[Rfam]
RNA sequence: GCGCGCUGGGUCCAGUGGUUCUUAACAGUUCAACAGUUCUGUAGCGCAAUUGUGAAAUGUUUAGGACCACUAGACCCGGC
Numbered sequence: 001g002c003g004c005g006c007u008g009g010g011u012c013c014a015g016u017g018g019u020u021c022u023u024a025a026c027a028g029u030u031c032a033a034c035a036g037u038u039c040u041g042u043a044g045c046g047c048a049a050u051u052g053u054g055a056a057a058u059g060u061u062u063a064g065g066a067c068c069a070c071u072a073g074a075c076c077c078g079g080c
Stems, first nucleotide, its partner, number of pairs: 014071006021064002024061004029056004
Dot-bracket structure: .............((((((.((.((((.((((....................)))).)))).)).)))))).........